[Rfam]
The record is a 120-nucleotide sequence, which matches "Group II catalytic intron D1-D4-2" in Rfam. The sequence is in the family's curated seed alignment. A reference for the family is Bonen and Vogel (2001), "The ins and outs of group II introns", Trends Genet. The base pairs follow the family's consensus structure. From the family's description: Group II introns are found in rRNA, tRNA and mRNA of organelles in fungi, plants and protists, and also in mRNA in bacteria.

RNA sequence: GGGGGUGGGCCCCCCGGAGCCGGCUUGCAGGAGCAGGCUCCAAACCACCUUAAGCUGCGCUGGUUAAGAGCCAGGGUGGUGAGCGUUAAGGACAAGUCAUGGCUAAUGACCGUGGCAGGU
Numbered sequence: 001g002g003g004g005g006u007g008g009g010c011c012c013c014c015c016g017g018a019g020c021c022g023g024c025u026u027g028c029a030g031g032a033g034c035a036g037g038c039u040c041c042a043a044a045c046c047a048c049c050u051u052a053a054g055c056u057g058c059g060c061u062g063g064u065u066a067a068g069a070g071c072c073a074g075g076g077u078g079g080u081g082a083g084c085g086u087u088a089a090g091g092a093c094a095a096g097u098c099a100u101g102g103c104u105a106a107u108g109a110c111c112g113u114g115g116c117a118g119g120u
Stems, first nucleotide, its partner, number of pairs: 001015005016041006023034004046119001048091006054080002057077002060074005096116006